[Rfam]
RNA sequence: GGGGAAAGACUUAGAACCCCACGAACGUAGUGUUAAUAGUUGUACUUUUGGCCGAGUGCGACGGUUAGUGAAUC
Number, nucleotide and partner (000 for none) at each position: 001g020002g019003g018004g017005a000006a000007a000008g000009a000010c000011u000012u000013a000014g000015a000016a000017c004018c003019c002020c001021a000022c000023g000024a000025a000026c000027g000028u000029a000030g000031u000032g000033u068034u067035a066036a065037u064038a000039g062040u061041u060042g059043u058044a057045c056046u055047u054048u000049u000050g000051g000052c000053c000054g047055a046056g045057u044058g043059c042060g041061a040062c039063g000064g037065u036066u035067a034068g033069u000070g000071a000072a000073u000074c000

Shown here is a 74-nucleotide RNA, a member of the family "L13-Bacteroidia ribosomal protein leader".
On this family, see Eckert and Weinberg, BMC Microbiol 2020: "Discovery of 20 novel ribosomal leader candidates in bacteria and archaea".
The family's consensus secondary structure is taken from published work.